The family of this 74-nucleotide RNA sequence is "L13-Bacteroidia ribosomal protein leader". By type it is a cis-regulatory leader.
[Rfam]
RNA sequence: GGGGGUAACUUAGGGCCUCCAUACAGUUCGUGUUAAUAGUUGUACUUUUGGCCGAGUGCAGCGGUUAGUGAAUC
Dot-bracket structure: ((((((........))))))............(((((.(((((((((......))))))))).)))))......